[Rfam]
RNA sequence: UGGCUGGGAUGACAAAAACAUACGUUUCUCGAUCCUGAUACUUGAUAUGUUCAAGGACCAAAACUUUGAUGACCUUUGUGCGUGUCUGAGCCAG
Numbered sequence: 001u002g003g004c005u006g007g008g009a010u011g012a013c014a015a016a017a018a019c020a021u022a023c024g025u026u027u028c029u030c031g032a033u034c035c036u037g038a039u040a041c042u043u044g045a046u047a048u049g050u051u052c053a054a055g056g057a058c059c060a061a062a063a064c065u066u067u068g069a070u071g072a073c074c075u076u077u078g079u080g081c082g083u084g085u086c087u088g089a090g091c092c093a094g
Base pairs, nucleotide, nucleotide: 001093002092003091004090

A member of the RNA family "small nucleolar RNA snoR126" from Panicum virgatum, 94 nucleotides long.
The base pairs follow the family's consensus structure, which was predicted with RNAalifold.
A search with the family's covariance model found it, with a score of 68 bits.
On this family, see Chen and Wu, Nucleic Acids Res 2009: "Mining small RNA sequencing data: a new approach to identify small nucleolar RNAs in Arabidopsis".
Rfam classes the family as a C/D-box small nucleolar RNA.
Taxonomically the source falls in Panicum sect. Hiantes (Eukaryota, Tracheophyta, Mesangiospermae, commelinids).